[Rfam]
RNA sequence: UCAAGAACCUUUUGAAUCAAGUAGUACAAUGAUUCAAAAGGUUCUUACAA
Numbered sequence: 001u002c003a004a005g006a007a008c009c010u011u012u013u014g015a016a017u018c019a020a021g022u023a024g025u026a027c028a029a030u031g032a033u034u035c036a037a038a039a040g041g042u043u044c045u046u047a048c049a050a
Stems, first nucleotide, its partner, number of pairs: 003046016
Dot-bracket structure: ..((((((((((((((((............))))))))))))))))....
RNA: Plastid-ccsA-ndhD-1 3UTR RNA